[Rfam]
RNA sequence: AGUAGUAUAAUAAACAUUGGUCAAGCAUGUGAAGAAGGGGUAAGCACCCUGCAUGUAACACUUGGUAGAUAAGUCUUGAAUACCUGUGACAAACGAUAGUUUUAGCAGGUAAAAUCCCGGCACGGUUGGGGUACUAGUUAAGGACUAGUUAGCAUAAGAGUGUUGUGGAGCAUCUUUUCAACUAAGGUACACUUUUCGUCCAUUCCCAUAAUAGCUACCUUCUAGGAAGGGUCCAGCCUGCAAACCAAGUUUGGUGGAAAAGAGCUUGUUAGGUAGGUAAUUCCAAUAAGGGAAUAUGUGCUAAGUAACAGAAAUGUUAUGUAAGUUGAUGGAAAGUGGUCAGAUGGGCUUAAUUGCACAGAAUACAGGUAUAUUUGAAAAUACUACAAAUUCUGAACGCUAUAGGUCUAAUGUAUCGGUCAUCGAACCGGAUUGUACAUUAAAAGCAGUGGGAAGUUACCAGUUCGCUACUAGUAGCUCAGACCCACUGGGUACAUGACUGAAUAAGUUGGUUGAGAUAAGUGAAGCACAGUGAAAGCUGGGCCAAUGAUACAUAGAUU
Numbered sequence: 001a002g003u004a005g006u007a008u009a010a011u012a013a014a015c016a017u018u019g020g021u022c023a024a025g026c027a028u029g030u031g032a033a034g035a036a037g038g039g040g041u042a043a044g045c046a047c048c049c050u051g052c053a054u055g056u057a058a059c060a061c062u063u064g065g066u067a068g069a070u071a072a073g074u075c076u077u078g079a080a081u082a083c084c085u086g087u088g089a090c091a092a093a094c095g096a097u098a099g100u101u102u103u104a105g106c107a108g109g110u111a112a113a114a115u116c117c118c119g120g121c122a123c124g125g126u127u128g129g130g131g132u133a134c135u136a137g138u139u140a141a142g143g144a145c146u147a148g149u150u151a152g153c154a155u156a157a158g159a160g161u162g163u164u165g166u167g168g169a170g171c172a173u174c175u176u177u178u179c180a181a182c183u184a185a186g187g188u189a190c191a192c193u194u195u196u197c198g199u200c201c202a203u204u205c206c207c208a209u210a211a212u213a214g215c216u217a218c219c220u221u222c223u224a225g226g227a228a229g230g231g232u233c234c235a236g237c238c239u240g241c242a243a244a245c246c247a248a249g250u251u252u253g254g255u256g257g258a259a260a261a262g263a264g265c266u267u268g269u270u271a272g273g274u275a276g277g278u279a280a281u282u283c284c285a286a287u288a289a290g291g292g293a294a295u296a297u298g299u300g301c302u303a304a305g306u307a308a309c310a311g312a313a314a315u316g317u318u319a320u321g322u323a324a325g326u327u328g329a330u331g332g333a334a335a336g337u338g339g340u341c342a343g344a345u346g347g348g349c350u351u352a353a354u355u356g357c358a359c360a361g362a363a364u365a366c367a368g369g370u371a372u373a374u375u376u377g378a379a380a381a382u383a384c385u386a387c388a389a390a391u392u393c394u395g396a397a398c399g400c401u402a403u404a405g406g407u408c409u410a411a412u413g414u415a416u417c418g419g420u421c422a423u424c425g426a427a428c429c430g431g432a433u434u435g436u437a438c439a440u441u442a443a444a445a446g447c448a449g450u451g452g453g454a455a456g457u458u459a460c461c462a463g464u465u466c467g468c469u470a471c472u473a474g475u476a477g478c479u480c481a482g483a484c485c486c487a488c489u490g491g492g493u494a495c496a497u498g499a500c501u502g503a504a505u506a507a508g509u510u511g512g513u514u515g516a517g518a519u520a521a522g523u524g525a526a527g528c529a530c531a532g533u534g535a536a537a538g539c540u541g542g543g544c545c546a547a548u549g550a551u552a553c554a555u556a557g558a559u560u
Base pairs, nucleotide, nucleotide: 008557010555011554014551018547020545022543025056026055027054028053029052037050038049039048040047058164059162060161061160062159063158081111082110083109085107086106087105089103091102092101093100094099115131116130117129118128119127120126121125134148135147136146137145138144139143173521176518177517178516181510183508187501190338191337192336193335194334195333196332197331198330199329200328201325202295203294204293205292206291207290218230219229220228221227236278237277238276239275240274241273246268247267248266249265250264251263252262255285256284257283258282306319307318308317309316310315342412348407349406350405351404352403392483393482394481395480416432417431419429434496435495436494445493447490448489449488450487451486452485456479458476459475460474462472463471464470530541531540532539533538

This 560-nucleotide RNA sequence from Watanabevirus wv3521 belongs to the Rfam family "ROOL RNA". A search with the family's covariance model found it, with a score of 179 bits. Lineage of the source: Viruses > Duplodnaviria > Heunggongvirae > Uroviricota > Watanabevirus wv3521. Rfam's curators write: Firmicutes, Fusobacteria (1 example), Tenericutes (1 example). The family's RNA type in Rfam is small RNA.